[Rfam]
RNA sequence: AAGGUGGCGUAUGCCACAGCCAUGGACUGGUUCAUAGCAGUCUGUUAUGCCUUC
Number, nucleotide and partner (000 for none) at each position: 001a000002a053003g052004g000005u000006g051007g050008c049009g000010u047011a046012u000013g045014c044015c000016a041017c040018a000019g038020c037021c000022a035023u034024g033025g032026a031027c000028u000029g000030g000031u026032u025033c024034a023035u022036a000037g020038c019039a000040g017041u016042c000043u000044g014045u013046u011047a010048u000049g008050c007051c006052u003053u002054c000